[Rfam]
The record is a 127-nucleotide RNA, which matches "Flavobacterium-1 RNA" in Rfam. Rfam's curators put it in the seed alignment. Rfam classes the family as a small RNA.
RNA sequence: CCGAGAUAGGGGUACAUAUUCUGCCACUGGCGAUUCCCUGGACCUUAGCGAUGAAGGCAUUUCAAAGCCUGAGCAACGACUCUCGGCGUCAGAUGGGGAGAGUGCCAGACGUGGUGUCCCCGCUGAC
Numbered sequence: 001c002c003g004a005g006a007u008a009g010g011g012g013u014a015c016a017u018a019u020u021c022u023g024c025c026a027c028u029g030g031c032g033a034u035u036c037c038c039u040g041g042a043c044c045u046u047a048g049c050g051a052u053g054a055a056g057g058c059a060u061u062u063c064a065a066a067g068c069c070u071g072a073g074c075a076a077c078g079a080c081u082c083u084c085g086g087c088g089u090c091a092g093a094u095g096g097g098g099a100g101a102g103u104g105c106c107a108g109a110c111g112u113g114g115u116g117u118c119c120c121c122g123c124u125g126a127c
Stems, first nucleotide, its partner, number of pairs: 001086006007079001009077001010045004015040002022032004048074002056069002089126004094122006105114003